[Rfam]
RNA sequence: CAAUGAAAACAAUAUAUCCCACAUAUAUGCUAGAGGAUUGGCUCUAGUGUCUCUACCCGACACCGUAAAUGUUGGACUAUGCGGGAAAGCAAGCACUUA
Numbered sequence: 001c002a003a004u005g006a007a008a009a010c011a012a013u014a015u016a017u018c019c020c021a022c023a024u025a026u027a028u029g030c031u032a033g034a035g036g037a038u039u040g041g042c043u044c045u046a047g048u049g050u051c052u053c054u055a056c057c058c059g060a061c062a063c064c065g066u067a068a069a070u071g072u073u074g075g076a077c078u079a080u081g082c083g084g085g086a087a088a089g090c091a092a093g094c095a096c097u098u099a
Base pairs, nucleotide, nucleotide: 018085019084020083022081023080024079025078029048030047031046032045033044034043035042057075058074059073060072061071062070

The family of this 99-nucleotide sequence from Candidatus Kurthia intestinigallinarum is "Purine riboswitch aptamer". Clan: Purine riboswitches.